A member of the RNA family "tRNA" from Flammeovirga sp. SJP92, 73 nucleotides long. Lineage of the source: Bacteria > Bacteroidota > Cytophagales > Flammeovirgaceae > Flammeovirga.

[Rfam]
RNA sequence: ACGGGCAUAGCUCAGCUGGUAGAGUUACGGUCUCCAAAACCGCAGGUCGUGGGUUCGAAUCCUACUGCCCGUG
Dot-bracket structure: (((((((..((((........))))..((((.......))))......(((((.......)))))))))))).